[Rfam]
RNA sequence: AAACUCGUGAGGGGAUGUGAGAAGGAAGCCCGAGUGCAAAACGACGAGUCUAUGAACAAGAAUGUCAUAGAAGGCCGAGUCUCAGGGGUGAGUUAGCCAAUGAUAACGAAACCCGCAGGUUCGCGAGAUACGGUAAAUGGCAAGGCAGUGUCGUGACAGUUUACGUU
Numbered sequence: 001a002a003a004c005u006c007g008u009g010a011g012g013g014g015a016u017g018u019g020a021g022a023a024g025g026a027a028g029c030c031c032g033a034g035u036g037c038a039a040a041a042c043g044a045c046g047a048g049u050c051u052a053u054g055a056a057c058a059a060g061a062a063u064g065u066c067a068u069a070g071a072a073g074g075c076c077g078a079g080u081c082u083c084a085g086g087g088g089u090g091a092g093u094u095a096g097c098c099a100a101u102g103a104u105a106a107c108g109a110a111a112c113c114c115g116c117a118g119g120u121u122c123g124c125g126a127g128a129u130a131c132g133g134u135a136a137a138u139g140g141c142a143a144g145g146c147a148g149u150g151u152c153g154u155g156a157c158a159g160u161u162u163a164c165g166u167u
Base pairs, nucleotide, nucleotide: 001016004013005012006011028167030165036160037159041154042153043152044151045150046149048146049145050144051143063142064141065140066139067138068137074134075133076132079129080128081127082126083125086114087113088112089111092107093106094105095104
Dot-bracket structure: (..(((....)))..)...........(.(.....((...((((((.((((...........((((((.....(((..(((((..((((..((((........))))...))))..........)))))..)))..))))))))))..))))))....))....).)